Background:
Rfam assigns this 81-nucleotide sequence from Dialister sp. CAG:588 to the family "ZMP/ZTP riboswitch aptamer (pfl RNA motif)". The family has 185 seed sequences and 3,295 matches in Rfam 15.1. Pairs were carried over by alignment from the consensus structure, which is taken from published work. The organism belongs to Dialister, within Bacteria. Rfam links the family to the GO terms regulation of purine nucleotide biosynthetic process and one-carbon metabolic process.
Nucleotides: 081
Base pairs, nucleotide, nucleotide: 004054005053006052007051008050009049010048011047012046015043017069018068019067020066021065027040028039029038030037059075060074061073062072
Number, partner (000 for none) and nucleotide at each position: 001000u002000a003000a004054g005053a006052u007051u008050u009049a010048c011047a012046g013000g014000a015043c016000u017069g018068a019067c020066g021065g022000a023000u024000a025000a026000g027040g028039u029038g030037g031000a032000a033000u034000a035000a036000a037030c038029c039028a040027c041000a042000u043015g044000a045000a046012c047011u048010g049009u050008a051007a052006a053005u054004u055000a056000a057000g058000a059075u060074g061073u062072c063000g064000a065021c066020c067019g068018u069017c070000u071000g072062g073061g074060c075059a076000g077000a078000g079000a080000a081000a